RNA sequence: CCCGCCGAAGUGGGUCUAAGCCCAGCGUCCCCGGAGGCGGGCCACGGGGUAGAGCUACUGAUGGGAGGUGCAGGGGGGCGUAGGCCCCCCGGCCUCCCGUCAAACUCCGAACCCGUGGCCGCCGUAGAAGGGGGCAGUGGGGCGCCCCGGGGUAAGCCCGGGGGCCGAGAGGGGAACAACCCAGACCGGGGUUAAGGCCCCCAAGUGCCGGCUAAGUGCCAACCGAAAGGGCGUCUCGGGCCUCAGACAGCGGGGAGGUGGGCCUAACAGCAGCCACCCUCUAAGGAGUGCGUAACAGCUCACCCGCCGAGGCCCGAGGCCCCGAAGAUUGGUCGGGGCUUAAGCCGGCCGCCGAGACCCCGGGCCCCCCUCCCGGUGGGAGGGGGUGCGGUAGGCGGGCGUCGGGGCGGCCCAGAAGGCGGGCCGUGAGGUCCGCUGGAGCCGCUCCGAGUGCCGAU
Numbered sequence: 001c002c003c004g005c006c007g008a009a010g011u012g013g014g015u016c017u018a019a020g021c022c023c024a025g026c027g028u029c030c031c032c033g034g035a036g037g038c039g040g041g042c043c044a045c046g047g048g049g050u051a052g053a054g055c056u057a058c059u060g061a062u063g064g065g066a067g068g069u070g071c072a073g074g075g076g077g078g079c080g081u082a083g084g085c086c087c088c089c090c091g092g093c094c095u096c097c098c099g100u101c102a103a104a105c106u107c108c109g110a111a112c113c114c115g116u117g118g119c120c121g122c123c124g125u126a127g128a129a130g131g132g133g134g135c136a137g138u139g140g141g142g143c144g145c146c147c148c149g150g151g152g153u154a155a156g157c158c159c160g161g162g163g164g165c166c167g168a169g170a171g172g173g174g175a176a177c178a179a180c181c182c183a184g185a186c187c188g189g190g191g192u193u194a195a196g197g198c199c200c201c202c203a204a205g206u207g208c209c210g211g212c213u214a215a216g217u218g219c220c221a222a223c224c225g226a227a228a229g230g231g232c233g234u235c236u237c238g239g240g241c242c243u244c245a246g247a248c249a250g251c252g253g254g255g256a257g258g259u260g261g262g263c264c265u266a267a268c269a270g271c272a273g274c275c276a277c278c279c280u281c282u283a284a285g286g287a288g289u290g291c292g293u294a295a296c297a298g299c300u301c302a303c304c305c306g307c308c309g310a311g312g313c314c315c316g317a318g319g320c321c322c323c324g325a326a327g328a329u330u331g332g333u334c335g336g337g338g339c340u341u342a343a344g345c346c347g348g349c350c351g352c353c354g355a356g357a358c359c360c361c362g363g364g365c366c367c368c369c370c371u372c373c374c375g376g377u378g379g380g381a382g383g384g385g386g387u388g389c390g391g392u393a394g395g396c397g398g399g400c401g402u403c404g405g406g407g408c409g410g411c412c413c414a415g416a417a418g419g420c421g422g423g424c425c426g427u428g429a430g431g432u433c434c435g436c437u438g439g440a441g442c443c444g445c446u447c448c449g450a451g452u453g454c455c456g457a458u
Stems, first nucleotide, its partner, number of pairs: 001399006011024005026137001027135006036123003040120008052108001053106002060101010073090006141166003145163006171182003186363007196353003205350001207349006229323003233320010250307005256280003261275003281285001286301001290299002364389002366385004400453001402450010418437008

Archaeal large subunit ribosomal RNA: a 458-nucleotide part of an RNA from Ignicoccus hospitalis. Taxonomically the source falls in Ignicoccus hospitalis (Archaea, Desulfurococcales, Desulfurococcaceae, Ignicoccus). For this family Rfam cites "Crystal structure of the ribosome at 5.5 A resolution" (Yusupov et al., Science, 2001).